[Rfam]
RNA sequence: UCCUGUAUCGAAAGUGAUUGUGGCAUCACUGUUGCCAGAUUAUUGAUAGUACAGGAACAUCAACCUGAAGGUCUUUCCCGUGUUUGUGGGGCUCACCUUCCUUGUCAAACCCUGUAUCUUUCUCACU
Numbered sequence: 001u002c003c004u005g006u007a008u009c010g011a012a013a014g015u016g017a018u019u020g021u022g023g024c025a026u027c028a029c030u031g032u033u034g035c036c037a038g039a040u041u042a043u044u045g046a047u048a049g050u051a052c053a054g055g056a057a058c059a060u061c062a063a064c065c066u067g068a069a070g071g072u073c074u075u076u077c078c079c080g081u082g083u084u085u086g087u088g089g090g091g092c093u094c095a096c097c098u099u100c101c102u103u104g105u106c107a108a109a110c111c112c113u114g115u116a117u118c119u120u121u122c123u124c125a126c127u
Base pairs, nucleotide, nucleotide: 001056002055003054004053005052006051007050008049013044014043015042016041017040018039019038022036023035024034025033067122068121069120070119071118082110083109084108085107086106087104088103089102090101091100
Rfam assigns this 127-nucleotide RNA from Scleropages formosus to the family "Small nucleolar RNA SNORA71". Rfam 15.1 lists 1,805 matches to the family in 606 species. Rfam describes the family as follows. The members of this family belong to the H/ACA class of snoRNAs which bind a number of proteins (including dyskerin, Gar1p and Nop10p) to form snoRNP complexes. This class of snoRNAs are thought to guide the sites of modification of uridines to pseudouridines by forming direct base pairing interactions with substrate RNAs. This family includes U71 (SNORA71), ACA39 (SNORA39) and ACA60 (SNORA60). U71 and ACA60 are predicted to guide the pseudouridylation of U406 and U1004 in 18S rRNA respectively. Taxonomically the source falls in Scleropages (Eukaryota, Opisthokonta, Gnathostomata, Neopterygii).